The record is a 118-nucleotide sequence from Castor canadensis, which matches "Small nucleolar RNA SNORA61" in Rfam. Rfam describes the family as follows. ACA61 is a member of the H/ACA class of snoRNA that guide the sites of modification of uridines to pseudouridines. The base pairs follow the family's consensus structure, which was predicted with PFOLD. The family's RNA type in Rfam is H/ACA-box small nucleolar RNA. Its family is annotated with nucleolus and RNA processing in the Gene Ontology.

[Rfam]
RNA sequence: ACCCUUUGGUUCCUUUUCCUAUUAGAUCUGAAUGCUGGUCUUGGUAGUCCUAAAAGGAAGGAAGGUGAUCACAGCACUGCAGUCUGUACUAGAGCAUGUGGGCCAGUUUCAAACAGAA
Numbered sequence: 001a002c003c004c005u006u007u008g009g010u011u012c013c014u015u016u017u018c019c020u021a022u023u024a025g026a027u028c029u030g031a032a033u034g035c036u037g038g039u040c041u042u043g044g045u046a047g048u049c050c051u052a053a054a055a056g057g058a059a060g061g062a063a064g065g066u067g068a069u070c071a072c073a074g075c076a077c078u079g080c081a082g083u084c085u086g087u088a089c090u091a092g093a094g095c096a097u098g099u100g101g102g103c104c105a106g107u108u109u110c111a112a113a114c115a116g117a118a
Stems, first nucleotide, its partner, number of pairs: 003057005019047005025040004066105002069102002078096003